[Rfam]
RNA: TPP riboswitch aptamer (THI element)
RNA sequence: GCGGCCAACCACGGGAGUCCGGUAGCGGCCGGGCUGAGAGGAGGGCCACCCAGCCCUCGACCGUCGAUACCUGAUCAGGGUCAUGCCUGCGCAGGGAGGUCCUCGUGGUGCGCA
Numbered sequence: 001g002c003g004g005c006c007a008a009c010c011a012c013g014g015g016a017g018u019c020c021g022g023u024a025g026c027g028g029c030c031g032g033g034c035u036g037a038g039a040g041g042a043g044g045g046c047c048a049c050c051c052a053g054c055c056c057u058c059g060a061c062c063g064u065c066g067a068u069a070c071c072u073g074a075u076c077a078g079g080g081u082c083a084u085g086c087c088u089g090c091g092c093a094g095g096g097a098g099g100u101c102c103u104c105g106u107g108g109u110g111c112g113c114a
Stems, first nucleotide, its partner, number of pairs: 008100003011064004017034005041058005070095004076089004